[Rfam]
RNA: Bacterial large subunit ribosomal RNA, nucleotides 579 to 792
RNA sequence: AAGUUAAUUGUAAAUGCAAGAUGAUAAAUCUUAGUGAAAGCGAUAAGUAAAUAUAUAAAAUGAACUUAGUAAAGUAUUUAUAAUUAGAUCCGAAACCAGAUGAUCUUUUUAUGGCCAGGUUUGAAUAAAAGGACUGAACGGGUGAAUGUUGCAGUAUUCUCCGAUGAGCUGUGAAAAGGGGUGAAAUGCCAAUCUAAUCUGGUGAUAGCUGAUA
Numbered sequence: 001a002a003g004u005u006a007a008u009u010g011u012a013a014a015u016g017c018a019a020g021a022u023g024a025u026a027a028a029u030c031u032u033a034g035u036g037a038a039a040g041c042g043a044u045a046a047g048u049a050a051a052u053a054u055a056u057a058a059a060a061u062g063a064a065c066u067u068a069g070u071a072a073a074g075u076a077u078u079u080a081u082a083a084u085u086a087g088a089u090c091c092g093a094a095a096c097c098a099g100a101u102g103a104u105c106u107u108u109u110u111a112u113g114g115c116c117a118g119g120u121u122u123g124a125a126u127a128a129a130a131g132g133a134c135u136g137a138a139c140g141g142g143u144g145a146a147u148g149u150u151g152c153a154g155u156a157u158u159c160u161c162c163g164a165u166g167a168g169c170u171g172u173g174a175a176a177a178g179g180g181g182u183g184a185a186a187u188g189c190c191a192a193u194c195u196a197a198u199c200u201g202g203u204g205a206u207a208g209c210u211g212a213u214a
Base pairs, nucleotide, nucleotide: 005086006085007084008083009082010081011080012079013078014077015076016075017074020030021029022028034041035040044068045067046066047065089212090211092209096202097201098200099199100198101197105178106177107176108175109174110173111172112171113170114169115168116166118135119134120133121132139163140162141161144159145158146157147156180190181189182188